Record summary:
This 133-nucleotide RNA from Pogona vitticeps belongs to the Rfam family "Small nucleolar RNA SNORA69". NCBI's taxonomy places the organism under Eukaryota, Eumetazoa, Tetrapoda, Unidentata, Pogona. It is annotated as an H/ACA-box small nucleolar RNA. Rfam describes the family as follows. U69 is a member of the H/ACA class of small nucleolar RNAs (snoRNAs) which act as guides in the the modification of uridines to pseudouridines. Gene Ontology terms of the family: RNA processing and nucleolus.
[Rfam]
RNA sequence: AAAGCAGGCUGCAAUUGCAGUGCUUCAGUCUGUGGGAGCACUGCCAUGUCCCUGCUGAGAGCAACUCUGUGACUCAGAAUUUGGUUUCUCUUCUGUGCUGGAGAAAUCACUCUUUGAACAGUGACAGGCACUG
Numbered sequence: 001a002a003a004g005c006a007g008g009c010u011g012c013a014a015u016u017g018c019a020g021u022g023c024u025u026c027a028g029u030c031u032g033u034g035g036g037a038g039c040a041c042u043g044c045c046a047u048g049u050c051c052c053u054g055c056u057g058a059g060a061g062c063a064a065c066u067c068u069g070u071g072a073c074u075c076a077g078a079a080u081u082u083g084g085u086u087u088c089u090c091u092u093c094u095g096u097g098c099u100g101g102a103g104a105a106a107u108c109a110c111u112c113u114u115u116g117a118a119c120a121g122u123g124a125c126a127g128g129c130a131c132u133g
Stems, first nucleotide, its partner, number of pairs: 003056006018043009067127004072122002074117003082109010